[Rfam]
RNA sequence: AGAACUUUAAGUUUCUGCAAUGGUAUGGGAUCCGAAGCCCCUCGAGGGAUAAUACAAGCUCUCCCAUCCAAUUCCUGUUUCGAUACGUCCUCGUCGUGCAGAGUGGUAACAUGUGCCUCCAUAUAUCCUAGAUUGGGUACAUGGGCUAGAUCCAACCCCUUGGGCGGAUGGUGGCACAUGGCGAACCAGGAGGGA
Numbered sequence: 001a002g003a004a005c006u007u008u009a010a011g012u013u014u015c016u017g018c019a020a021u022g023g024u025a026u027g028g029g030a031u032c033c034g035a036a037g038c039c040c041c042u043c044g045a046g047g048g049a050u051a052a053u054a055c056a057a058g059c060u061c062u063c064c065c066a067u068c069c070a071a072u073u074c075c076u077g078u079u080u081c082g083a084u085a086c087g088u089c090c091u092c093g094u095c096g097u098g099c100a101g102a103g104u105g106g107u108a109a110c111a112u113g114u115g116c117c118u119c120c121a122u123a124u125a126u127c128c129u130a131g132a133u134u135g136g137g138u139a140c141a142u143g144g145g146c147u148a149g150a151u152c153c154a155a156c157c158c159c160u161u162g163g164g165c166g167g168a169u170g171g172u173g174g175c176a177c178a179u180g181g182c183g184a185a186c187c188a189g190g191a192g193g194g195a
Base pairs, nucleotide, nucleotide: 011104012103013102014101023069025067026066027065028064029063030062032058073195074194075193076192078191079190081189085097086096087095089106090105110180111179112178113177114176115175116174117173119171120170125169126168127167128166133155134154135153136152137151138150157164158163

Shown here is a 195-nucleotide RNA from Anopheles gambiae, a member of the family "drz-agam-2-2 ribozyme".
Gene Ontology term of the family: catalytic activity.
The literature on the family includes a 2009 paper in Science by Webb et al., "Widespread occurrence of self-cleaving ribozymes".
The base pairs follow the family's consensus structure, which is taken from published work.
Lineage of the source: Eukaryota > Opisthokonta > Metazoa > Protostomia > Anopheles gambiae.
The family has 5 seed sequences and 486 matches in Rfam 15.1.